[Rfam]
RNA sequence: AGAGGUUUCAAGUUUGAGGAUACAGCUGAAGCGCUGAUGGCGCAGUCAUGUCAGAUUCCAAAGAAUCUGUGAAUUCUUCU
Numbered sequence: 001a002g003a004g005g006u007u008u009c010a011a012g013u014u015u016g017a018g019g020a021u022a023c024a025g026c027u028g029a030a031g032c033g034c035u036g037a038u039g040g041c042g043c044a045g046u047c048a049u050g051u052c053a054g055a056u057u058c059c060a061a062a063g064a065a066u067c068u069g070u071g072a073a074u075u076c077u078u079c080u
Stems, first nucleotide, its partner, number of pairs: 013048001018047002021044001024080002028076003031043003052069007
Dot-bracket structure: ............[....[[.[..((..((((((.......)))].]]]...(((((((....)))))))....)))..))

Mammalian CPEB3 ribozyme: an 80-nucleotide RNA from Alligator mississippiensis. About the family: The mammalian CPEB3 ribozyme is a self cleaving RNA located in the second intron of the CPEB3 gene which belongs to a family of genes regulating messenger RNA polyadenylation. This ribozyme is highly conserved and found only in mammals.